Notes: The record is a 140-nucleotide RNA from Betta splendens, which matches "Small nucleolar RNA SNORD10" in Rfam. Lineage of the source: Eukaryota > Craniata > Actinopteri > Eurypterygia > Betta. The family has 22 seed sequences and 433 matches in Rfam 15.1. A search with the family's covariance model found it, with a score of 87 bits. Pairs were carried over by alignment from the consensus structure, which was predicted with WAR. A reference for the family is Huttenhofer et al. (2001), "RNomics: an experimental approach that identifies 201 candidates for novel, small, non-messenger RNAs in mouse", EMBO J.
Nucleotides: 140
Base pairs, nucleotide, nucleotide: 001140002139003138004137043101044100045099046098047097049095050094051093
Number, partner (000 for none) and nucleotide at each position: 001140g002139u003138a004137u005000u006000g007000u008000g009000a010000u011000g012000a013000a014000a015000u016000c017000c018000a019000u020000g021000c022000g023000u024000g025000u026000c027000a028000a029000c030000u031000g032000a033000u034000u035000c036000u037000g038000u039000a040000a041000a042000c043101c044100c045099c046098u047097g048000g049095u050094g051093u052000g053000u054000u055000g056000u057000u058000g059000c060000u061000c062000u063000g064000g065000u066000u067000g068000g069000c070000g071000u072000u073000c074000u075000g076000c077000u078000a079000g080000c081000u082000u083000g084000a085000g086000u087000u088000g089000g090000c091000a092000a093051a094050c095049a096000g097047u098046a099045g100044g101043g102000a103000c104000c105000c106000a107000g108000a109000a110000g111000c112000a113000u114000g115000a116000u117000c118000a119000u120000a121000c122000a123000u124000u125000u126000a127000a128000a129000a130000c131000u132000u133000c134000u135000g136000a137004a138003u139002g140001c